[Rfam]
RNA sequence: AGGUGAGGGCAGUCUGGCUGCCACAUCUGUCACCCCACUGAUCACCAGGGUAGAUUCAGCUGACCCGGUUGGCUAGGCAGGUGUCCCCUCCCCUCCCUUGCUACAGCCUCCAAACAAGCUCAAGGUCCAUUAGUAGGAAAGUGUAGGGUAGCCAAGCUACAAGCAUCAUAGUCACCCUAAGACACUGUGCUCCCUUGCUACAGCCUCCAACCAAGCUCAAGGUCCACCUGUAGGAAAAACGUAGGGUAGUCAAGCUUCCAAGACUGCAGACACAUCCAAGCGAGCUGCUACAUGGGUAUAAAGGUACCUGUGCUCCCCUC
Number, nucleotide and partner (000 for none) at each position: 001a098002g097003g096004u000005g095006a094007g093008g092009g091010c000011a000012g090013u000014c000015u000016g088017g087018c000019u000020g000021c000022c000023a084024c083025a082026u081027c080028u079029g078030u077031c076032a000033c072034c071035c068036c067037a000038c000039u000040g065041a000042u063043c062044a000045c059046c000047a000048g000049g000050g000051u000052a000053g000054a000055u000056u000057c000058a000059g045060c000061u000062g043063a042064c000065c040066c000067g036068g035069u000070u000071g034072g033073c000074u000075a000076g031077g030078c029079a028080g027081g026082u025083g024084u023085c000086c000087c017088c016089u000090c012091c009092c008093c007094u006095c005096c003097c002098u001099u000100g000101c000102u000103a000104c000105a000106g157107c156108c000109u000110c000111c151112a000113a000114a120115c000116a000117a000118g000119c000120u114121c000122a000123a000124g000125g000126u148127c147128c146129a000130u000131u000132a000133g144134u143135a142136g000137g000138a000139a000140a000141g000142u135143g134144u133145a000146g128147g127148g126149u000150a000151g111152c000153c000154a000155a000156g107157c106158u000159a000160c000161a000162a000163g000164c000165a000166u000167c000168a000169u000170a000171g000172u000173c000174a000175c000176c000177c000178u000179a000180a000181g000182a000183c000184a000185c254186u253187g000188u000189g000190c249191u248192c000193c246194c245195u244196u243197g242198c241199u000200a000201c000202a000203g000204c000205c000206u235207c234208c233209a000210a000211c000212c230213a229214a000215g227216c000217u000218c000219a000220a000221g000222g000223u000224c000225c000226a000227c215228c000229u213230g212231u000232a000233g208234g207235a206236a000237a000238a000239a000240c000241g198242u197243a196244g195245g194246g193247u000248a191249g190250u000251c000252a000253a186254g185255c000256u000257u000258c000259c000260a000261a000262g000263a000264c000265u000266g000267c000268a000269g000270a000271c000272a000273c000274a000275u000276c000277c000278a000279a319280g318281c000282g315283a314284g313285c312286u000287g308288c000289u306290a305291c304292a000293u000294g000295g000296g000297u000298a000299u000300a000301a000302a000303g000304g291305u290306a289307c000308c287309u000310g000311u000312g285313c284314u283315c282316c000317c000318c280319u279320c000

This 320-nucleotide RNA sequence from Panurus biarmicus belongs to the Rfam family "7SK RNA". About the family: 7SK was discovered as an abundant small nuclear RNA in the mid-70s but a possible function has only recently been suggested. Two independent studies have found that 7SK RNA binds the CDK9/cyclin T complex (known as elongation factor P-TEFb). The match comes from Rfam's covariance-model search (130 bits). The family's consensus secondary structure is taken from published work.